[Rfam]
Rfam assigns this 88-nucleotide RNA sequence from Sorex araneus to the family "Small nucleolar RNA SNORD53/SNORD92".
Gene Ontology terms of the family: nucleolus and RNA processing.
The sequence is in the family's curated seed alignment.
RNA sequence: UGGUGCUGUGAUGAUGCCUUAAAAUUGUGGUUUCGACUCUCUGAGUAUAAAAUGAAGACCUACAAUUCCUUGGCUGUGUCUGAGCACU
Numbered sequence: 001u002g003g004u005g006c007u008g009u010g011a012u013g014a015u016g017c018c019u020u021a022a023a024a025u026u027g028u029g030g031u032u033u034c035g036a037c038u039c040u041c042u043g044a045g046u047a048u049a050a051a052a053u054g055a056a057g058a059c060c061u062a063c064a065a066u067u068c069c070u071u072g073g074c075u076g077u078g079u080c081u082g083a084g085c086a087c088u
Stems, first nucleotide, its partner, number of pairs: 003087004
Source information
Rfam classes the family as a C/D-box small nucleolar RNA.